[Rfam]
RNA sequence: ACCCCACACAAUUAAGCCGACAAUUUCAAUGUAUUCCAAUUGAAACUGUGUGCUCGUUGUGGGAACAGCAAAGUCUGCUAAUAGUGUAUGAUUGUAUUUGUUAUUACGGUAUAAUCAAAGAAUUGGUCAGGACA
Numbered sequence: 001a002c003c004c005c006a007c008a009c010a011a012u013u014a015a016g017c018c019g020a021c022a023a024u025u026u027c028a029a030u031g032u033a034u035u036c037c038a039a040u041u042g043a044a045a046c047u048g049u050g051u052g053c054u055c056g057u058u059g060u061g062g063g064a065a066c067a068g069c070a071a072a073g074u075c076u077g078c079u080a081a082u083a084g085u086g087u088a089u090g091a092u093u094g095u096a097u098u099u100g101u102u103a104u105u106a107c108g109g110u111a112u113a114a115u116c117a118a119a120g121a122a123u124u125g126g127u128c129a130g131g132a133c134a
Stems, first nucleotide, its partner, number of pairs: 020049003024045004077128001078126002089117007098109004